[Rfam]
RNA sequence: GUAACCCACCCACCCACGCACGGCAGGAGCGGGGGAACCACAGGUAAGCCGCCGAUCCGGGAGACCGGAACGGCUCGGGGUGAAGCCGCGCCCACCAGCGCGACCGGGCAUCUCCCGCCCGAACCCGACAGCUCACCUCGCAGGCGUCGGAGAGGACAUUU
Numbered sequence: 001g002u003a004a005c006c007c008a009c010c011c012a013c014c015c016a017c018g019c020a021c022g023g024c025a026g027g028a029g030c031g032g033g034g035g036a037a038c039c040a041c042a043g044g045u046a047a048g049c050c051g052c053c054g055a056u057c058c059g060g061g062a063g064a065c066c067g068g069a070a071c072g073g074c075u076c077g078g079g080g081u082g083a084a085g086c087c088g089c090g091c092c093c094a095c096c097a098g099c100g101c102g103a104c105c106g107g108g109c110a111u112c113u114c115c116c117g118c119c120c121g122a123a124c125c126c127g128a129c130a131g132c133u134c135a136c137c138u139c140g141c142a143g144g145c146g147u148c149g150g151a152g153a154g155g156a157c158a159u160u161u
Base pairs, nucleotide, nucleotide: 007146009144010143015027029141030140031139032138033137034136039077078126079125080124087102088101089100106120107119108118109117
Dot-bracket structure: ......(.((....(...........).((((((....(.....................................)(((......(((..........)))...((((.......))))...))).........)))))).)).)...............
The family of this 161-nucleotide sequence from Streptomyces sp. M41(2017) is "c-di-AMP riboswitch aptamer (ydaO/yuaA leader)". Rfam links the family to the GO terms regulation of gene expression and cyclic-di-AMP binding. This family represents a conserved RNA structure found upstream of the ydaO and yuaA genes in Bacillus subtilis and related genes in other bacteria. The match comes from Rfam's covariance-model search (54 bits).